Shown here is a 92-nucleotide RNA sequence from Teichococcus coralli, a member of the family "Bacterial small signal recognition particle RNA". A search with the family's covariance model found it, with a score of 59 bits. Rfam describes the family as follows. The signal recognition particle (SRP) is a universally conserved ribonucleoprotein involved in the co-translational targeting of proteins to membranes. Its family is annotated with SRP-dependent cotranslational protein targeting to membrane, signal sequence recognition and signal recognition particle, plasma membrane targeting in the Gene Ontology.
RNA sequence: GGUCGGCGGCGGACAGGCGCCUCGCCAACCCGGUCAGGUCCGGAAGGAAGCAGCCGCAACGAGUUUCCGUCUGGGUCGUUCCGCCGGUCUUC
Numbered sequence: 001g002g003u004c005g006g007c008g009g010c011g012g013a014c015a016g017g018c019g020c021c022u023c024g025c026c027a028a029c030c031c032g033g034u035c036a037g038g039u040c041c042g043g044a045a046g047g048a049a050g051c052a053g054c055c056g057c058a059a060c061g062a063g064u065u066u067c068c069g070u071c072u073g074g075g076u077c078g079u080u081c082c083g084c085c086g087g088u089c090u091u092c
Base pairs, nucleotide, nucleotide: 001089002088003087004086005085006082008080009079010078011077014073015072016071017070018069019068021063022062023061024060031056032055033054034053039048040047041046